[Rfam]
RNA sequence: AUGCCUGGGAUGAAGCCUGUGUUGGUAGGGACAUCUGAAAGUGCUGAUGAAUGCCAGUGGCUCUGAUGGUGGUGU
Numbered sequence: 001a002u003g004c005c006u007g008g009g010a011u012g013a014a015g016c017c018u019g020u021g022u023u024g025g026u027a028g029g030g031a032c033a034u035c036u037g038a039a040a041g042u043g044c045u046g047a048u049g050a051a052u053g054c055c056a057g058u059g060g061c062u063c064u065g066a067u068g069g070u071g072g073u074g075u
Base pairs, nucleotide, nucleotide: 001075002074003073004072005071
A member of the RNA family "Small nucleolar RNA SNORD74" from Ictidomys tridecemlineatus, 75 nucleotides long.
Lineage of the source: Eukaryota > Teleostomi > Tetrapoda > Theria > Ictidomys.
It is annotated as a C/D-box small nucleolar RNA.